[Rfam]
RNA sequence: GGGCCUUUAGCUCAGUAGGUAGAGCAUCGGACUUUUAAUCCGCAGGUCGCGGGUUCGAUCCCCGCAGGGCCCA
Numbered sequence: 001g002g003g004c005c006u007u008u009a010g011c012u013c014a015g016u017a018g019g020u021a022g023a024g025c026a027u028c029g030g031a032c033u034u035u036u037a038a039u040c041c042g043c044a045g046g047u048c049g050c051g052g053g054u055u056c057g058a059u060c061c062c063c064g065c066a067g068g069g070c071c072c073a
Stems, first nucleotide, its partner, number of pairs: 001072007010025004028042004049065005
About this RNA
tRNA: a 73-nucleotide RNA from Enteractinococcus coprophilus. The source organism's lineage runs through Bacteria, Actinomycetota, Micrococcales, Micrococcaceae and Enteractinococcus. It is annotated as a transfer RNA.